c-di-GMP-I riboswitch aptamer: an 86-nucleotide sequence from [Anoxybacillus] calidus. Pairs were carried over by alignment from the consensus structure, which is taken from published work.

RNA sequence: CGAACGAAAGGGCAAAACCGUUGAAAAACGGUGACGCAAAGCUAUAGGGGCUAAUGUCUCUUUGACGAUGCCAGCCAGCUGCCGAA
Numbered sequence: 001c002g003a004a005c006g007a008a009a010g011g012g013c014a015a016a017a018c019c020g021u022u023g024a025a026a027a028a029c030g031g032u033g034a035c036g037c038a039a040a041g042c043u044a045u046a047g048g049g050g051c052u053a054a055u056g057u058c059u060c061u062u063u064g065a066c067g068a069u070g071c072c073a074g075c076c077a078g079c080u081g082c083c084g085a086a
Stems, first nucleotide, its partner, number of pairs: 012037002017032006040080004047076002049072003056066003
A reference for the family is Weinberg et al. (2007), "Identification of 22 candidate structured RNAs in bacteria using the CMfinder comparative genomics pipeline", Nucleic Acids Res.